[Rfam]
RNA sequence: CCCGUGCACCCUGACUCGGAUCGUCCGGCACGUUCCUGCCGGUGAAGGGAUCGUUC
Numbered sequence: 001c002c003c004g005u006g007c008a009c010c011c012u013g014a015c016u017c018g019g020a021u022c023g024u025c026c027g028g029c030a031c032g033u034u035c036c037u038g039c040c041g042g043u044g045a046a047g048g049g050a051u052c053g054u055u056c
Base pairs, nucleotide, nucleotide: 009048010047012045014043025042026041027040028039029038030037
The family of this 56-nucleotide RNA sequence from Rhodococcus (subgen. Prescottella) equi is "msiK RNA".
It is annotated as a cis-regulatory element.